RNA: ASpks TB sRNA
Organism: Streptomyces neyagawaensis
RNA sequence: CUUCAACGAGCCCAGCCAGAGCGGCCGGUCCACCGGGCGGCCCUGGCCGUAGGUGGCCAGCAGUGCCUGUGCCUC
Numbered sequence: 001c002u003u004c005a006a007c008g009a010g011c012c013c014a015g016c017c018a019g020a021g022c023g024g025c026c027g028g029u030c031c032a033c034c035g036g037g038c039g040g041c042c043c044u045g046g047c048c049g050u051a052g053g054u055g056g057c058c059a060g061c062a063g064u065g066c067c068u069g070u071g072c073c074u075c
Stems, first nucleotide, its partner, number of pairs: 015025003031071003038065002043060003047056003